[Rfam]
RNA sequence: GGUCAUGAGCGUCAGCCAUCCAAGGCCCUGGCCGGCUGACCGGCAACCCUCCGUCGCGGCGGGGUGCUCCAGGUGACGACCCGGCCGGACCGGGAAUCGGUCCGGCAAGUGCGAAAC
Dot-bracket structure: ((((....(.((((((.......((......)).)))))))(((..(((.((.....))..))).))).........))))..((((((((((...))))))))))...........
Numbered sequence: 001g002g003u004c005a006u007g008a009g010c011g012u013c014a015g016c017c018a019u020c021c022a023a024g025g026c027c028c029u030g031g032c033c034g035g036c037u038g039a040c041c042g043g044c045a046a047c048c049c050u051c052c053g054u055c056g057c058g059g060c061g062g063g064g065u066g067c068u069c070c071a072g073g074u075g076a077c078g079a080c081c082c083g084g085c086c087g088g089a090c091c092g093g094g095a096a097u098c099g100g101u102c103c104g105g106c107a108a109g110u111g112c113g114a115a116a117c
Stems, first nucleotide, its partner, number of pairs: 001081004009041001011040006024033002042068003047064003051059002084106010
Shown here is a 117-nucleotide RNA from Actinacidiphila paucisporea, a member of the family "SAM (S-adenosyl methionine) riboswitch aptamer". NCBI's taxonomy places the organism under Bacteria, Bacillati, Actinomycetota, Streptomycetaceae, Actinacidiphila.